[Rfam]
RNA sequence: ACAAUGAUACUCCCGCCCAGCCACAGUCCGAGCGUGAUAACGUGGUCCAGCGUAAAGCCGUCGCAGGCAAUGGGGGGUGGCCGGCAGAGAACCUGCCGGGGGUGAAAUUCCCGUGA
Numbered sequence: 001a002c003a004a005u006g007a008u009a010c011u012c013c014c015g016c017c018c019a020g021c022c023a024c025a026g027u028c029c030g031a032g033c034g035u036g037a038u039a040a041c042g043u044g045g046u047c048c049a050g051c052g053u054a055a056a057g058c059c060g061u062c063g064c065a066g067g068c069a070a071u072g073g074g075g076g077g078u079g080g081c082c083g084g085c086a087g088a089g090a091a092c093c094u095g096c097c098g099g100g101g102g103u104g105a106a107a108u109u110c111c112c113g114u115g116a
Stems, first nucleotide, its partner, number of pairs: 012113001013080006081099003085095003100112003
RNA: pemK RNA